The family of this 112-nucleotide sequence from Sphingopyxis alaskensis is "TPP riboswitch aptamer (THI element)".
Rfam describes the family as follows. Vitamin B(1) in its active form thiamin pyrophosphate (TPP) is an essential coenzyme that is synthesised by coupling of pyrimidine and thiazole moieties in bacteria.

RNA sequence: CCUCCAUCCCCGGGGAGCCUGUCGCGCAAAAGCAGGUUGAGAGCGGAAUAAACCGCGACCCGUUGAACCUGAUCCGGGUAAUACCGGCGGAGGGAGGGUUGGCUUUCACCCC
Numbered sequence: 001c002c003u004c005c006a007u008c009c010c011c012g013g014g015g016a017g018c019c020u021g022u023c024g025c026g027c028a029a030a031a032g033c034a035g036g037u038u039g040a041g042a043g044c045g046g047a048a049u050a051a052a053c054c055g056c057g058a059c060c061c062g063u064u065g066a067a068c069c070u071g072a073u074c075c076g077g078g079u080a081a082u083a084c085c086g087g088c089g090g091a092g093g094g095a096g097g098g099u100u101g102g103c104u105u106u107c108a109c110c111c112c
Base pairs, nucleotide, nucleotide: 006100008098009097010096011062012061013060014059017037018036019035020034021033044055045054046053068093069092070091074087075086076085077084